[Rfam]
RNA sequence: UCGAACUGAAUAUUCUGUUUUCGUAUAACCUUAAUGAUCGGAUUAAGGGUCUCUACUUAGAAACCGUAAAUUUCUAGCUACGAAAAGUAUGCCUGUGCAG
Dot-bracket structure: .................((((((((...(((((((......)))))))........(((((((.......))))))).))))))))..............
Numbered sequence: 001u002c003g004a005a006c007u008g009a010a011u012a013u014u015c016u017g018u019u020u021u022c023g024u025a026u027a028a029c030c031u032u033a034a035u036g037a038u039c040g041g042a043u044u045a046a047g048g049g050u051c052u053c054u055a056c057u058u059a060g061a062a063a064c065c066g067u068a069a070a071u072u073u074c075u076a077g078c079u080a081c082g083a084a085a086a087g088u089a090u091g092c093c094u095g096u097g098c099a100g
Stems, first nucleotide, its partner, number of pairs: 018086008029048007057077007